Description
The record is a 132-nucleotide RNA sequence from Dipodomys ordii, which matches "Small nucleolar RNA SNORA51" in Rfam. The base pairs follow the family's consensus structure, which was predicted with PFOLD. The family has 9 seed sequences and 2,121 matches in Rfam 15.1. Taxonomically the source falls in Dipodomys (Eukaryota, Opisthokonta, Bilateria, Euteleostomi). Rfam links the family to the GO terms nucleolus and RNA processing.
RNA sequence: CUGCCUCUGGUGCUUAUCACAGGUUGUAUUCUCACACUGACUGUAUAGAAAGAGGAGGAAGUGUAAAUCUACCCCAUAUAGACCUUGGCACAGACCCUGUGUCUGCUCUGUAUUGUGAAUGGGGAGACAUGG
Numbered sequence: 001c002u003g004c005c006u007c008u009g010g011u012g013c014u015u016a017u018c019a020c021a022g023g024u025u026g027u028a029u030u031c032u033c034a035c036a037c038u039g040a041c042u043g044u045a046u047a048g049a050a051a052g053a054g055g056a057g058g059a060a061g062u063g064u065a066a067a068u069c070u071a072c073c074c075c076a077u078a079u080a081g082a083c084c085u086u087g088g089c090a091c092a093g094a095c096c097c098u099g100u101g102u103c104u105g106c107u108c109u110g111u112a113u114u115g116u117g118a119a120u121g122g123g124g125a126g127a128c129a130u131g132g
Stems, first nucleotide, its partner, number of pairs: 002059001004057001006055003020043003026037002029034001072124006086110003091105005